[Rfam]
This 61-nucleotide sequence from Propithecus coquereli belongs to the Rfam family "U7 small nuclear RNA". Taxonomically the source falls in Propithecus (Eukaryota, Chordata, Tetrapoda, Primates). For this family Rfam cites "U7 snRNAs: a computational survey" (Marz et al., Genomics Proteomics Bioinformatics, 2007). A search with the family's covariance model found it, with a score of 44 bits. The family's consensus secondary structure was predicted with PFOLD.
Nucleotides: 061
Base pairs, nucleotide, nucleotide: 033058035056036055037054038053039052040051041050042049043048
Number, partner (000 for none) and nucleotide at each position: 001000u002000a003000g004000u005000g006000u007000u008000a009000u010000a011000g012000c013000u014000c015000u016000u017000u018000a019000g020000a021000a022000u023000u024000u025000g026000u027000c028000u029000g030000g031000c032000a033058g034000a035056u036055u037054u038053u039052c040051c041050g042049g043048u044000c045000u046000g047000g048043a049042c050041u051040g052039g053038a054037g055036g056035a057000c058033c059000g060000g061000c